[Rfam]
RNA sequence: AAUUACAUCUUUGGGGAGUAGCCGCACAUAUCUCCUGUGACAAACGUCAACACACUUGUUUAAUUUAAACAUGGCGUUUGUAUCUCAUCAUUUCUACAAGAUUGUCUGACAAAAAAAUAGAAUGAUGAGACU
Numbered sequence: 001a002a003u004u005a006c007a008u009c010u011u012u013g014g015g016g017a018g019u020a021g022c023c024g025c026a027c028a029u030a031u032c033u034c035c036u037g038u039g040a041c042a043a044a045c046g047u048c049a050a051c052a053c054a055c056u057u058g059u060u061u062a063a064u065u066u067a068a069a070c071a072u073g074g075c076g077u078u079u080g081u082a083u084c085u086c087a088u089c090a091u092u093u094c095u096a097c098a099a100g101a102u103u104g105u106c107u108g109a110c111a112a113a114a115a116a117a118u119a120g121a122a123u124g125a126u127g128a129g130a131c132u
Stems, first nucleotide, its partner, number of pairs: 026038003040081010057071005083130011
This 132-nucleotide RNA sequence belongs to the Rfam family "Manganese Mn2+ riboswitch aptamer (yybP-ykoY)". About the family: This RNA was originally discovered in E. coli during a large scale screen and was named SraF. The family was later found to exist upstream of related families of protein genes in many bacteria, including the the yybP and ykoK genes in B. subtilis. Its family is annotated with manganese ion binding in the Gene Ontology.